[Rfam]
RNA sequence: CCGGGGGACCGGGCAGCCGCGUCAUCCUUCGGGAUGCCGAGGAAAGUCCGGGCUCCACGAAACAAGGGUGGCGGGUAACGCCCGCCGGGCGCAAGCUUAGGGAAAGUGCCACAGAGAGCAGACCGCCUGUUUACAGGUAAGGGUGAAAGGGUGCGGUAAGAGCGCACCGCGCGGCCGGUAACGGUUGCGGCAUGGCAAACCCCACCCGGAGCAAGACCGAAUAGGGGCGGCGGGCUUGUCUACGUCCGAAAGGAUACGGGACAGGCGGGGCGGUUUCGGCCCCUGAUCGCCCGGGUUGGUCGCUGGAGCGGCGUAGCAAUGCGUCGCCAAGAGGAAUGGCUGCCGUCGUCCGCAUGUCCCUUUCGGGAUACUACGGGCGUCACAGAACCCGGCUUACAGGUCCCCCGGCAAA
Numbered sequence: 001c002c003g004g005g006g007g008a009c010c011g012g013g014c015a016g017c018c019g020c021g022u023c024a025u026c027c028u029u030c031g032g033g034a035u036g037c038c039g040a041g042g043a044a045a046g047u048c049c050g051g052g053c054u055c056c057a058c059g060a061a062a063c064a065a066g067g068g069u070g071g072c073g074g075g076u077a078a079c080g081c082c083c084g085c086c087g088g089g090c091g092c093a094a095g096c097u098u099a100g101g102g103a104a105a106g107u108g109c110c111a112c113a114g115a116g117a118g119c120a121g122a123c124c125g126c127c128u129g130u131u132u133a134c135a136g137g138u139a140a141g142g143g144u145g146a147a148a149g150g151g152u153g154c155g156g157u158a159a160g161a162g163c164g165c166a167c168c169g170c171g172c173g174g175c176c177g178g179u180a181a182c183g184g185u186u187g188c189g190g191c192a193u194g195g196c197a198a199a200c201c202c203c204a205c206c207c208g209g210a211g212c213a214a215g216a217c218c219g220a221a222u223a224g225g226g227g228c229g230g231c232g233g234g235c236u237u238g239u240c241u242a243c244g245u246c247c248g249a250a251a252g253g254a255u256a257c258g259g260g261a262c263a264g265g266c267g268g269g270g271c272g273g274u275u276u277c278g279g280c281c282c283c284u285g286a287u288c289g290c291c292c293g294g295g296u297u298g299g300u301c302g303c304u305g306g307a308g309c310g311g312c313g314u315a316g317c318a319a320u321g322c323g324u325c326g327c328c329a330a331g332a333g334g335a336a337u338g339g340c341u342g343c344c345g346u347c348g349u350c351c352g353c354a355u356g357u358c359c360c361u362u363u364c365g366g367g368a369u370a371c372u373a374c375g376g377g378c379g380u381c382a383c384a385g386a387a388c389c390c391g392g393c394u395u396a397c398a399g400g401u402c403c404c405c406c407g408g409c410a411a412a
Stems, first nucleotide, its partner, number of pairs: 001408010011397001012344007020039002023036005044395003048392005053211004062276001064274001066207005071085005086100001087098004101202002106200002108196003123142002125138005150168006169191001170189008215301004225292006268282004308327008